Shown here is a 111-nucleotide sequence from Clostridiales bacterium oral taxon 876, a member of the family "SAM riboswitch aptamer (S box leader)". Rfam links the family to the GO term regulation of gene expression. NCBI's taxonomy places the organism under Bacteria, Bacillota, Clostridia, Eubacteriales, Clostridiales bacterium oral taxon 876. A search with the family's covariance model found it, with a score of 88 bits.
[Rfam]
RNA sequence: UCCUUAUCAAGAGAGACUGAGGGAUUGGCCCAAUGAAGUCUCAGCAACCAGCAGGUAUCAUUAGCCUGUAUGGUGCUAAAUCCAACAGAUUGUGUUUCUGAGAGAUGAGGA
Numbered sequence: 001u002c003c004u005u006a007u008c009a010a011g012a013g014a015g016a017c018u019g020a021g022g023g024a025u026u027g028g029c030c031c032a033a034u035g036a037a038g039u040c041u042c043a044g045c046a047a048c049c050a051g052c053a054g055g056u057a058u059c060a061u062u063a064g065c066c067u068g069u070a071u072g073g074u075g076c077u078a079a080a081u082c083c084a085a086c087a088g089a090u091u092g093u094g095u096u097u098c099u100g101a102g103a104g105a106u107g108a109g110g111a
Base pairs, nucleotide, nucleotide: 001111002110003109004108005107006106007105008104013042014041015040016039017038021031022030023029025085026084027083028082043077044076045075046074048073049072051069052068053067054066055065056064081103086100087099088098089097